[Rfam]
RNA sequence: GUGCCCGUAGCUCAGAUGGAUAGAGCACGGGGCUCCGGACCCCGGGGUCGCGGGUUCAAGUCCCGCCGGGCACG
Numbered sequence: 001g002u003g004c005c006c007g008u009a010g011c012u013c014a015g016a017u018g019g020a021u022a023g024a025g026c027a028c029g030g031g032g033c034u035c036c037g038g039a040c041c042c043c044g045g046g047g048u049c050g051c052g053g054g055u056u057c058a059a060g061u062c063c064c065g066c067c068g069g070g071c072a073c074g
Stems, first nucleotide, its partner, number of pairs: 001073007010026004028044005050066005
Shown here is a 74-nucleotide RNA from Hydrogenivirga sp. 128-5-R1-1, a member of the family "tRNA". The organism belongs to Hydrogenivirga, within Bacteria. Rfam describes the family as follows. Transfer RNA (tRNA) molecules are approximately 80 nucleotides in length. Their secondary structure includes four short double-helical elements and three loops (D, anti-codon, and T loops). Further hydrogen bonds mediate the characteristic L-shaped molecular structure. tRNAs have two regions of fundamental functional importance: the anti-codon, which is responsible for specific mRNA codon recognition, and the 3' end, to which the tRNAs corresponding amino acid is attached (by aminoacyl-tRNA synthetases). tRNAs cope with the degeneracy of the genetic code in two manners: having more than one tRNA (with a specific anti-codon) for a particular amino acid; and 'wobble' base-pairing, i.e. permitting non-standard base-pairing at the 3rd anti-codon position.